[Rfam]
RNA sequence: GAUAGUAGGCCUAUCAGCAUCGGCAUGUAGCUGCUGGUGCUAAACCACCUGAAGGUGCUGUAUUCAAAAGAUAUGGUACUGAACGUUCAGGUAAAGAUGUUGUAUAAACAGCAUCAGGU
Numbered sequence: 001g002a003u004a005g006u007a008g009g010c011c012u013a014u015c016a017g018c019a020u021c022g023g024c025a026u027g028u029a030g031c032u033g034c035u036g037g038u039g040c041u042a043a044a045c046c047a048c049c050u051g052a053a054g055g056u057g058c059u060g061u062a063u064u065c066a067a068a069a070g071a072u073a074u075g076g077u078a079c080u081g082a083a084c085g086u087u088c089a090g091g092u093a094a095a096g097a098u099g100u101u102g103u104a105u106a107a108a109c110a111g112c113a114u115c116a117g118g119u
Base pairs, nucleotide, nucleotide: 001015002014003013004012005011016041017040018039019038020037021036023034024033025032046118048091049090050089051088052087053086054080055079057077058076059075061073062072063071064070096115097114098113099112100111101110
Rfam assigns this 119-nucleotide sequence to the family "Group II catalytic intron D1-D4-2". Rfam's curators write: Group II introns are found in rRNA, tRNA and mRNA of organelles in fungi, plants and protists, and also in mRNA in bacteria. Its family is annotated with Group II intron splicing in the Gene Ontology. The family has 144 seed sequences and 1,231 matches in Rfam 15.1. The base pairs follow the family's consensus structure.